[Rfam]
Nucleotides: 137
Base pairs, nucleotide, nucleotide: 003062004061005060006059007058008057009056011054017049018048019047020046021045022044023042024041025040026039027038074131075130076129078127079126087116088115089114090113091112092111095110096109097108
Number, partner (000 for none) and nucleotide at each position: 001000c002000u003062u004061c005060c006059u007058c008057a009056g010000c011054c012000u013000u014000a015000c016000u017049c018048c019047a020046g021045g022044g023042g024041c025040u026039u027038u028000u029000g030000u031000u032000u033000u034000c035000u036000g037000u038027a039026g040025g041024g042023u043000g044022c045021c046020c047019u048018g049017g050000c051000a052000u053000u054011g055000c056009c057008u058007g059006a060005g061004g062003a063000u064000a065000g066000a067000u068000u069000g070000a071000a072000a073000g074131u075130g076129c077000u078127c079126a080000u081000u082000u083000c084000c085000c086000u087116c088115c089114c090113c091112a092111g093000u094000g095110a096109g097108a098000u099000u100000c101000u102000c103000a104000g105000u106000a107000u108097u109096c110095u111092c112091u113090g114089g115088g116087g117000c118000c119000u120000a121000c122000a123000a124000u125000c126079u127078g128000a129076g130075c131074a132000a133000a134000c135000a136000u137000u
Description:
A member of the RNA family "Small nucleolar RNA SNORA49" from Geococcyx californianus, 137 nucleotides long. It is annotated as an H/ACA-box small nucleolar RNA. The family's consensus secondary structure was predicted with RNAalifold.